[Rfam]
RNA sequence: AUGACGGUUGUGGGAGAGUGCAUUAAGUUACACGCCACCGAAGGAGCAAGUUUCAAAAAGACCCUUGGAACAAAUCUCUCAGGUAGAUGGAACUACAAUCGGACG
Number, nucleotide and partner (000 for none) at each position: 001a000002u000003g000004a000005c000006g100007g099008u098009u097010g096011u095012g094013g093014g000015a000016g000017a000018g000019u000020g035021c034022a000023u032024u000025a000026a000027g000028u000029u000030a000031c000032a023033c000034g021035c020036c000037a084038c083039c082040g080041a079042a000043g000044g078045a077046g076047c000048a000049a000050g071051u070052u069053u068054c067055a066056a065057a000058a000059a000060g000061a000062c000063c000064c000065u056066u055067g054068g053069a052070a051071c050072a000073a000074a000075u000076c046077u045078c044079u041080c040081a000082g039083g038084u037085a000086g000087a000088u000089g000090g000091a000092a000093c013094u012095a011096c010097a009098a008099u007100c006101g000102g000103a000104c000105g000

This 105-nucleotide RNA from Bacillus benzoevorans belongs to the Rfam family "Glycine riboswitch aptamer".
A search with the family's covariance model found it, with a score of 55 bits.